[Rfam]
RNA sequence: CUUUCAACCCACCCCAUGUAGGGAUGGUCAUUGAAAC
Numbered sequence: 001c002u003u004u005c006a007a008c009c010c011a012c013c014c015c016a017u018g019u020a021g022g023g024a025u026g027g028u029c030a031u032u033g034a035a036a037c
Stems, first nucleotide, its partner, number of pairs: 005033003009027002013023003
A member of the RNA family "CRISPR RNA direct repeat element" from Gloeothece verrucosa, 37 nucleotides long. The base pairs follow the family's consensus structure, which was predicted with WAR.